The record is a 68-nucleotide RNA sequence, which matches "lysM-Prevotella RNA" in Rfam. The base pairs follow the family's consensus structure, which is taken from published work. It is annotated as a cis-regulatory element.
[Rfam]
RNA sequence: UCAAGAGAUUAGGAACUUAACAAUUUGUUCCGGCCUUUUUAGGCUUCAUAGUACAGAAAUAAAAUAAC
Numbered sequence: 001u002c003a004a005g006a007g008a009u010u011a012g013g014a015a016c017u018u019a020a021c022a023a024u025u026u027g028u029u030c031c032g033g034c035c036u037u038u039u040u041a042g043g044c045u046u047c048a049u050a051g052u053a054c055a056g057a058a059a060u061a062a063a064a065u066a067a068c
Stems, first nucleotide, its partner, number of pairs: 012031005033044004